[Rfam]
RNA sequence: GUUUAUCUGACGAGUUUUGUGCUUUGCACAAAACAUCGCAUUAUUGAUUGCCGUUUCUCACAGGUGUUGCGAAACGGCGUAAAAAGUCAAAUCGAAAAUUGAUAUUUUUUCAUUGACUUUUUAUAGGA
Number, nucleotide and partner (000 for none) at each position: 001g000002u000003u000004u000005a000006u000007c000008u000009g000010a000011c000012g037013a036014g034015u033016u032017u031018u030019g029020u028021g027022c000023u000024u000025u000026g000027c021028a020029c019030a018031a017032a016033a015034c014035a000036u013037c012038g000039c000040a000041u000042u000043a000044u000045u000046g000047a000048u000049u000050g078051c077052c076053g075054u074055u073056u072057c071058u000059c000060a000061c000062a000063g000064g000065u000066g000067u000068u000069g000070c000071g057072a056073a055074a054075c053076g052077g051078c050079g000080u000081a122082a121083a120084a119085a118086g117087u116088c115089a114090a113091a000092u000093c000094g108095a107096a106097a105098a000099u104100u000101g000102a000103u000104a099105u097106u096107u095108u094109u000110u000111c000112a000113u090114u089115g088116a087117c086118u085119u084120u083121u082122u081123a000124u000125a000126g000127g000128a000
Rfam assigns this 128-nucleotide sequence from Treponema denticola to the family "TD-1 RNA". The source organism's lineage runs through Bacteria, Pseudomonadati, Treponemataceae, Treponema and Treponema denticola. Its Rfam clan is "TD (Treponema denticola) motifs". Pairs were carried over by alignment from the consensus structure, which is taken from published work. Rfam's curators put it in the seed alignment.